RNA sequence: GAAAUGGUUUACCGUCCCACAUACAUUCUGAAUAUGUAUGUGGGACGGUAAACCACAAAAG
Number, nucleotide and partner (000 for none) at each position: 001g000002a000003a000004a000005u055006g054007g053008u052009u051010u050011a049012c048013c047014g046015u045016c044017c043018c042019a041020c040021a039022u038023a037024c036025a035026u034027u000028c000029u000030g000031a000032a000033u000034a026035u025036g024037u023038a022039u021040g020041u019042g018043g017044g016045a015046c014047g013048g012049u011050a010051a009052a008053c007054c006055a005056c000057a000058a000059a000060a000061g000